[Rfam]
RNA: Small nucleolar RNA SNORD63
RNA sequence: GUGCAGUGAUUUGUCAACACAUCAUUCUGAAGAAAUGUGAUUUCCUGUGACUGAGCAUA
Numbered sequence: 001g002u003g004c005a006g007u008g009a010u011u012u013g014u015c016a017a018c019a020c021a022u023c024a025u026u027c028u029g030a031a032g033a034a035a036u037g038u039g040a041u042u043u044c045c046u047g048u049g050a051c052u053g054a055g056c057a058u059a
Base pairs, nucleotide, nucleotide: 001058002057003056004055